[Rfam]
RNA: Lysine riboswitch aptamer
Organism: Anaerotruncus massiliensis
RNA sequence: CGAGCCGGUAGAGGCGCGUCUUUCAUCAGUAGCCGGAAAGAGACUGCCAGAGUCGUUGAAAAGCCGUGUGAAAGGGACAGACGCCGAAGGGGACGCCUGGCGGCCGUUCCCUGGGCGCAUCGCCGAAAGGCAUGCGACUGUCAUCAUUGAACUGUGAUGGAGAGCUAUGGCGGGG
Dot-bracket structure: .....(.((((....((((((.((.......(((((...........................))).))......)).))))))...((((((((.((...)).))))))))((.(((((..(.....)..))))).)).(((((((......)))))))....)))).).....